Notes: The record is a 319-nucleotide RNA sequence from Paenibacillus hemerocallicola, which matches "T-box leader" in Rfam. About the family: Uncharged tRNA acts as the effector for transcription antitermination of genes in the T-box leader family. T-boxes are found upstream of many aminoacyl-tRNA synthetase genes and some amino acid biosynthetic genes usually in Gram-positive bacteria. The anticodon of a specific tRNA base pairs to a specifier sequence within the T-box motif, and the NCCA acceptor tail of the tRNA base pairs to a conserved bulge in the T-box antiterminator hairpin. Rfam links the family to the GO term tRNA binding.
RNA sequence: CAAUGUGCGAUGAAGAAGAGAAGUACGCAUGUGCGAAAGCGUCAGAGAGCCGGUGGCGGGUGCGAACCGGUGCGGACGGCAUGCCGAAUGGACUUCCGAGCAUCCGGACCGAGACGGUUCCGAUUGCGGCAGCUUGAGCCGCGCGGAGCGUGUAGGCUCCGGCGGGAAACCUACCCGAUAUCCAUGGGCACGGUAUCGACAACGCAUUAGCGUGCACGCCUUUUUCGGCGCGGCAGGGUGACGUUGCUCCGUACCGCAAAAGCGAGUUUGCCGCAGGGCAAACUAAUUAAGGUGGCACCGCGGGCUUUCCGUCCUUUUG
Numbered sequence: 001c002a003a004u005g006u007g008c009g010a011u012g013a014a015g016a017a018g019a020g021a022a023g024u025a026c027g028c029a030u031g032u033g034c035g036a037a038a039g040c041g042u043c044a045g046a047g048a049g050c051c052g053g054u055g056g057c058g059g060g061u062g063c064g065a066a067c068c069g070g071u072g073c074g075g076a077c078g079g080c081a082u083g084c085c086g087a088a089u090g091g092a093c094u095u096c097c098g099a100g101c102a103u104c105c106g107g108a109c110c111g112a113g114a115c116g117g118u119u120c121c122g123a124u125u126g127c128g129g130c131a132g133c134u135u136g137a138g139c140c141g142c143g144c145g146g147a148g149c150g151u152g153u154a155g156g157c158u159c160c161g162g163c164g165g166g167a168a169a170c171c172u173a174c175c176c177g178a179u180a181u182c183c184a185u186g187g188g189c190a191c192g193g194u195a196u197c198g199a200c201a202a203c204g205c206a207u208u209a210g211c212g213u214g215c216a217c218g219c220c221u222u223u224u225u226c227g228g229c230g231c232g233g234c235a236g237g238g239u240g241a242c243g244u245u246g247c248u249c250c251g252u253a254c255c256g257c258a259a260a261a262g263c264g265a266g267u268u269u270g271c272c273g274c275a276g277g278g279c280a281a282a283c284u285a286a287u288u289a290a291g292g293u294g295g296c297a298c299c300g301c302g303g304g305c306u307u308u309c310c311g312u313c314c315u316u317u318u319g
Stems, first nucleotide, its partner, number of pairs: 007101002015096004027084005039073002049071006104162005110156001163177003265284007289316004300312005